The record is a 136-nucleotide RNA sequence from Domibacillus mangrovi, which matches "FMN riboswitch aptamer (RFN element)" in Rfam. NCBI's taxonomy places the organism under Bacteria, Bacilli, Caryophanales, Bacillaceae, Domibacillus. The match comes from Rfam's covariance-model search (107 bits).

Nucleotides: 136
Stems, first nucleotide, its partner, number of pairs: 003134008018028002031116002033106002035067004062104002072079001085102002087099003108119003
Number, partner (000 for none) and nucleotide at each position: 001000a002000u003134u004133c005132a006131u007130c008129u009128u010127c011000g012000g013000g014000g015000c016000g017000u018028g019027g020000u021000g022000a023000a024000a025000u026000u027019c028018c029000c030000g031116a032115c033106c034105g035067g036066c037065g038064g039000u040000a041000a042000u043000u044000g045000g046000a047000g048000a049000u050000c051000a052000g053000u054000c055000u056000c057000c058000u059000u060000a061000a062104g063103c064038c065037c066036g067035c068000g069000a070000g071000c072079c073000g074000a075000u076000a077000a078000g079072g080000c081000a082000g083000g084000a085102u086101c087099c088098g089097g090000u091000g092000c093000g094000a095000u096000u097089c098088c099087g100000a101086g102085a103063g104062c105034c106033g107000a108119c109118a110117g111000u112000a113000u114000a115032g116031u117110c118109u119108g120000g121000a122000u123000g124000g125000g126000a127010g128009a129008a130007g131006a132005u133004g134003a135000a136000g